A member of the RNA family "Small nucleolar RNA SNORD103/SNORD85" from Callorhinchus milii, 88 nucleotides long. A search with the family's covariance model found it, with a score of 70 bits. Rfam classes the family as a C/D-box small nucleolar RNA. NCBI's taxonomy places the organism under Eukaryota, Opisthokonta, Chordata, Chondrichthyes, Callorhinchus.
RNA sequence: UCUGGCUAUGAUGACACACUUGCCCUCACUGAGAACAGGUGUUCAGCGAUGAGAAUUUCAAUUCUGUACUCAACUGAUCUGAGCCAAA
Numbered sequence: 001u002c003u004g005g006c007u008a009u010g011a012u013g014a015c016a017c018a019c020u021u022g023c024c025c026u027c028a029c030u031g032a033g034a035a036c037a038g039g040u041g042u043u044c045a046g047c048g049a050u051g052a053g054a055a056u057u058u059c060a061a062u063u064c065u066g067u068a069c070u071c072a073a074c075u076g077a078u079c080u081g082a083g084c085c086a087a088a
Stems, first nucleotide, its partner, number of pairs: 001088001003086004

On this family, see Huttenhofer et al., EMBO J 2001: "RNomics: an experimental approach that identifies 201 candidates for novel, small, non-messenger RNAs in mouse".